The family of this 272-nucleotide sequence from Ovis aries is "Small Cajal body specific RNA 6".
From the family's description: U88 is small Cajal body specific RNA (scaRNA). scaRNAs are a novel class of small nuclear RNAs which localise to the Cajal bodies. U88 is found associated with both fibrillarin and Gar1p and co-localises with coilin in Cajal bodies.
The base pairs follow the family's consensus structure, which is taken from published work.
Lineage of the source: Eukaryota > Euteleostomi > Boreoeutheria > Pecora > Ovis.
A search with the family's covariance model found it, with a score of 84 bits.
RNA sequence: GGUCAGUUGGGUGGGUGGACUAAGCAGAGGAUGGCAAGAGGGCCUCUAAAAAUCCUCUCCUCCAGCAGCCCAUUUGCUUCCCUCCCGUCACAUUUAAGUCAUGUGUACGGGGUAAUGGAGCAGCUGACAACAUGGGAUUCUGUCAGUGUGUGUUUCUGAAGAGUCAGCAGUGCACAGCAGACCAGUAUCCAACAAAACCAGCUACACAGGAGCGUGAUGAGCGGCAGCCAUGGGUGUGACGGUGCAUGAUCUCAAGUUUUCAAUCUGAGACC
Number, nucleotide and partner (000 for none) at each position: 001g272002g271003u270004c269005a000006g000007u000008u000009g000010g000011g000012u000013g000014g000015g000016u000017g000018g000019a000020c000021u000022a000023a000024g000025c000026a000027g000028a000029g000030g253031a252032u000033g250034g000035c248036a000037a000038g000039a000040g000041g000042g225043c224044c223045u000046c221047u220048a000049a000050a000051a000052a000053u000054c000055c000056u000057c000058u000059c212060c000061u210062c209063c126064a125065g124066c123067a000068g121069c120070c000071c000072a000073u000074u000075u000076g000077c000078u000079u000080c000081c000082c000083u000084c111085c110086c109087g108088u107089c000090a106091c105092a104093u103094u000095u000096a000097a000098g000099u000100c000101a000102u000103g093104u092105g091106u090107a088108c087109g086110g085111g084112g000113u000114a000115a000116u000117g000118g000119a000120g069121c068122a000123g066124c065125u064126g063127a000128c000129a000130a000131c000132a000133u000134g190135g000136g189137a188138u187139u000140c185141u184142g000143u000144c000145a000146g000147u000148g000149u176150g175151u174152g173153u172154u000155u170156c000157u167158g000159a000160a000161g000162a000163g000164u000165c000166a000167g157168c000169a000170g155171u000172g153173c152174a151175c150176a149177g000178c000179a000180g000181a000182c000183c000184a141185g140186u000187a138188u137189c136190c134191a000192a000193c000194a000195a000196a000197a000198c000199c000200a000201g000202c000203u000204a000205c000206a000207c000208a000209g062210g061211a000212g059213c000214g000215u000216g000217a000218u000219g000220a047221g046222c000223g044224g043225c042226a000227g000228c000229c000230a000231u000232g000233g000234g000235u000236g000237u000238g000239a000240c000241g000242g000243u000244g000245c000246a000247u000248g035249a000250u033251c000252u031253c030254a000255a000256g000257u000258u000259u000260u000261c000262a000263a000264u000265c000266u000267g000268a000269g004270a003271c002272c001